[Rfam]
This 165-nucleotide sequence from Setaria italica belongs to the Rfam family "MIR2118 microRNA precursor family".
RNA sequence: GCCUAGAAGAGGAAGAAAGAGAGGGCCUAACAGCAGUGGGAAUGGGAAUGUGGGGGAAAGCCUAGCCUGAUUGUUUCCUCAUCGAGGGAUAGUGGAAGCUUGGUUUGGUGCCCUAUCCUUCCCAUUCCUAUUGUUCUUAAGCGUUCUUUCCUCUUCCUUUUGGCU
Numbered sequence: 001g002c003c004u005a006g007a008a009g010a011g012g013a014a015g016a017a018a019g020a021g022a023g024g025g026c027c028u029a030a031c032a033g034c035a036g037u038g039g040g041a042a043u044g045g046g047a048a049u050g051u052g053g054g055g056g057a058a059a060g061c062c063u064a065g066c067c068u069g070a071u072u073g074u075u076u077c078c079u080c081a082u083c084g085a086g087g088g089a090u091a092g093u094g095g096a097a098g099c100u101u102g103g104u105u106u107g108g109u110g111c112c113c114u115a116u117c118c119u120u121c122c123c124a125u126u127c128c129u130a131u132u133g134u135u136c137u138u139a140a141g142c143g144u145u146c147u148u149u150c151c152u153c154u155u156c157c158u159u160u161u162g163g164c165u
Base pairs, nucleotide, nucleotide: 009156010155011154012153013152015150016149017148021146022145023144026141028139029138030137032135033134034133035132037130038129039128040127041126042125043124044123045122046121047120050116051115053113055112056111061110
The base pairs follow the family's consensus structure, which was predicted with RNAalifold. The source organism's lineage runs through Eukaryota, Viridiplantae, Euphyllophyta, Panicoideae and Setaria. On this family, see Xue et al., Nucleic Acids Res 2009: "Characterization and expression profiles of miRNAs in rice seeds".